Description: This 66-nucleotide RNA from Bacillus sp. 123MFChir2 belongs to the Rfam family "RAGATH-18 RNA". The base pairs follow the family's consensus structure, which is taken from published work. It is annotated as a small RNA. The sequence is in the family's curated seed alignment.
[Rfam]
RNA sequence: CCUGUGGAGAGCCAUAUAAACCAAAGUAGCAAGAUAGUGGCGAAAUGGGGCUCGUAGAAGCAGGAA
Numbered sequence: 001c002c003u004g005u006g007g008a009g010a011g012c013c014a015u016a017u018a019a020a021c022c023a024a025a026g027u028a029g030c031a032a033g034a035u036a037g038u039g040g041c042g043a044a045a046u047g048g049g050g051c052u053c054g055u056a057g058a059a060g061c062a063g064g065a066a
Stems, first nucleotide, its partner, number of pairs: 001064005009053005021048003029041002